[Rfam]
RNA sequence: AAUAAGCGAGCGCUGAAUCCCUGAAUAGGGAACGGGGGAACCACUUCUUGGGGUGAAUCCUUUUUCAGGUAGGGUUAACUUUCGACCCGAACCCGGCAGCUAACUUCGUAAGCGUAGAAAGGUGAGGUG
Numbered sequence: 001a002a003u004a005a006g007c008g009a010g011c012g013c014u015g016a017a018u019c020c021c022u023g024a025a026u027a028g029g030g031a032a033c034g035g036g037g038g039a040a041c042c043a044c045u046u047c048u049u050g051g052g053g054u055g056a057a058u059c060c061u062u063u064u065u066c067a068g069g070u071a072g073g074g075u076u077a078a079c080u081u082u083c084g085a086c087c088c089g090a091a092c093c094c095g096g097c098a099g100c101u102a103a104c105u106u107c108g109u110a111a112g113c114g115u116a117g118a119a120a121g122g123u124g125a126g127g128u129g
Stems, first nucleotide, its partner, number of pairs: 011114004018031003032109006042050002051094003059069003072088004